[Rfam]
RNA sequence: GGCAGGGAGGGUUCCUGGCACCGUGAUUUGGUGCAAUAACAGAAACAAAAAUCACAUUGCCAGGGAUUUCCACUCCGUC
Numbered sequence: 001g002g003c004a005g006g007g008a009g010g011g012u013u014c015c016u017g018g019c020a021c022c023g024u025g026a027u028u029u030g031g032u033g034c035a036a037u038a039a040c041a042g043a044a045a046c047a048a049a050a051a052u053c054a055c056a057u058u059g060c061c062a063g064g065g066a067u068u069u070c071c072a073c074u075c076c077g078u079c
Base pairs, nucleotide, nucleotide: 001079002078005075006074009071010070011067012066013065014064015063016062017061018060019059020058023055024054025053026052027051028050029049

Shown here is a 79-nucleotide sequence from Synaphobranchus kaupii, a member of the family "mir-23 microRNA precursor family".
Its family is annotated with RISC complex and gene silencing by miRNA in the Gene Ontology.
A search with the family's covariance model found it, with a score of 62 bits.
NCBI's taxonomy places the organism under Eukaryota, Metazoa, Eumetazoa, Synaphobranchidae, Synaphobranchus.